[Rfam]
RNA sequence: GGAUGUGAGGGCGAUCUGGCUGCGACAUCUGUCACCCCAUUGACCGCCAGGGUUGAUUCGGCUGAUCUGGCUGGCUAGGCGGGUGUCCCCUUCCUCCCUCACCGCUCCAUGUGCAUCCCUCCCGAAGCUGCGCGCUCGGUCGAAGAGGACGACUUUCCCCGAUAGAGACAUACCAUUCAUCGGUCAAGGGUAUGCGGUAGCUGCGCUCUCCCCUGCUAGAACCUCCAAACAAGCUCAAGGGAAAGCAAAGACAACUCUUUUAGCAAAUAUUUCAUAGACAACUAAGUACUGUGUU
Numbered sequence: 001g002g003a004u005g006u007g008a009g010g011g012c013g014a015u016c017u018g019g020c021u022g023c024g025a026c027a028u029c030u031g032u033c034a035c036c037c038c039a040u041u042g043a044c045c046g047c048c049a050g051g052g053u054u055g056a057u058u059c060g061g062c063u064g065a066u067c068u069g070g071c072u073g074g075c076u077a078g079g080c081g082g083g084u085g086u087c088c089c090c091u092u093c094c095u096c097c098c099u100c101a102c103c104g105c106u107c108c109a110u111g112u113g114c115a116u117c118c119c120u121c122c123c124g125a126a127g128c129u130g131c132g133c134g135c136u137c138g139g140u141c142g143a144a145g146a147g148g149a150c151g152a153c154u155u156u157c158c159c160c161g162a163u164a165g166a167g168a169c170a171u172a173c174c175a176u177u178c179a180u181c182g183g184u185c186a187a188g189g190g191u192a193u194g195c196g197g198u199a200g201c202u203g204c205g206c207u208c209u210c211c212c213c214u215g216c217u218a219g220a221a222c223c224u225c226c227a228a229a230c231a232a233g234c235u236c237a238a239g240g241g242a243a244a245g246c247a248a249a250g251a252c253a254a255c256u257c258u259u260u261u262a263g264c265a266a267a268u269a270u271u272u273c274a275u276a277g278a279c280a281a282c283u284a285a286g287u288a289c290u291g292u293g294u295u
Base pairs, nucleotide, nucleotide: 001108002107003106005102006101007100008099009098010097011096013093014092018090019089024087025086026085027084028083029082030081031080032079033078035074036073037070038069039068042067043066045064046062047061048060119167120166121165122139123138124137125136127135128134140162141161142160147158148157149156200264201263202262209254211250214247215246216245223241224240225239

A member of the RNA family "7SK RNA" from Steatornis caripensis, 295 nucleotides long. The match comes from Rfam's covariance-model search (242 bits).